[Rfam]
Guanidine-I riboswitch aptamer: a 110-nucleotide RNA sequence from Aliiruegeria lutimaris. From the family's description: This family represents a conserved RNA structure found upstream of the ykkC and yxkD genes in Bacillus subtilis and related genes in other bacteria. The function of this family is unclear although it has been suggested that it may function to switch on efflux pumps and detoxification systems in response to harmful environmental molecules. The match comes from Rfam's covariance-model search (87 bits). Taxonomically the source falls in Aliiruegeria (Bacteria, Pseudomonadota, Alphaproteobacteria, Roseobacteraceae).
Nucleotides: 110
Base pairs, nucleotide, nucleotide: 007057008056009055010054011053012052015047016046020044021043022041023038024037025036026035027034028033058083059082060081061080062079063078064077065076066075067074085105087108091103092102093101
Number, partner (000 for none) and nucleotide at each position: 001000g002000g003000g004000c005000a006000g007057g008056g009055u010054a011053c012052u013000u014000a015047g016046g017000g018000u019000u020044c021043c022041g023038u024037u025036c026035g027034g028033u029000u030000u031000u032000c033028a034027c035026c036025g037024a038023g039000g040000c041022c042000u043021g044020g045000u046016c047015c048000g049000a050000g051000a052012a053011g054010u055009g056008c057007c058083g059082c060081c061080g062079c063078g064077g065076g066075g067074g068000c069000a070000a071000a072000u073000u074067u075066u076065c077064c078063c079062g080061u081060g082059g083058u084000a085105c086000a087108c088000g089000g090000c091103g092102g093101g094000c095000c096000a097000a098000a099000a100000u101093c102092c103091c104000g105085g106000g107000a108087g109000a110000g
Rfam links the family to the GO term regulation of gene expression.